[Rfam]
RNA sequence: UAUGAAACAGGGCAAAAUCACUGAAAGGUGAUGACGCAAAGCUUUGGGUCUAAGGUUUUUUAUUUUAUUUAAAAAACGAUGAUCGCCAAGCUGCCAUU
Numbered sequence: 001u002a003u004g005a006a007a008c009a010g011g012g013c014a015a016a017a018u019c020a021c022u023g024a025a026a027g028g029u030g031a032u033g034a035c036g037c038a039a040a041g042c043u044u045u046g047g048g049u050c051u052a053a054g055g056u057u058u059u060u061u062a063u064u065u066u067a068u069u070u071a072a073a074a075a076a077c078g079a080u081g082a083u084c085g086c087c088a089a090g091c092u093g094c095c096a097u098u
Stems, first nucleotide, its partner, number of pairs: 012037002017032006040092004045088003048083003055077008
RNA: c-di-GMP-I riboswitch aptamer
Organism: Acetivibrio saccincola